RNA sequence: UUUGUUCUCAGCCAAACCUGUUGCAAAGCGGGGACGGAAAGCCACGGGUCCGCGUCCGCGGACAGCCGGGUUGCCUGC
Numbered sequence: 001u002u003u004g005u006u007c008u009c010a011g012c013c014a015a016a017c018c019u020g021u022u023g024c025a026a027a028g029c030g031g032g033g034a035c036g037g038a039a040a041g042c043c044a045c046g047g048g049u050c051c052g053c054g055u056c057c058g059c060g061g062a063c064a065g066c067c068g069g070g071u072u073g074c075c076u077g078c
Stems, first nucleotide, its partner, number of pairs: 012037002017032006040072004045068003048063006